[Rfam]
RNA sequence: GGGCACGAUGCGGGAGAGCAUGGGCGCCUUUCAGGCUUGAGCCCGUCGCCGAAGGAGCAACCGCCCCGGAAUCUCUCAGGCCAAAGGACCGCAUCGCGCGU
Numbered sequence: 001g002g003g004c005a006c007g008a009u010g011c012g013g014g015a016g017a018g019c020a021u022g023g024g025c026g027c028c029u030u031u032c033a034g035g036c037u038u039g040a041g042c043c044c045g046u047c048g049c050c051g052a053a054g055g056a057g058c059a060a061c062c063g064c065c066c067c068g069g070a071a072u073c074u075c076u077c078a079g080g081c082c083a084a085a086g087g088a089c090c091g092c093a094u095c096g097c098g099c100g101u
Base pairs, nucleotide, nucleotide: 006096007095008094009093010092011091012090013089020046021045022044023043024042025041048081049080050079051077052076055075056074057073061069062068
Description:
This 101-nucleotide sequence from Sphingobium yanoikuyae belongs to the Rfam family "Glycine riboswitch aptamer". On this family, see Mandal et al., Science 2004: "A glycine-dependent riboswitch that uses cooperative binding to control gene expression". It scores 66 bits against the family's covariance model. The organism belongs to Sphingobium yanoikuyae, within Bacteria.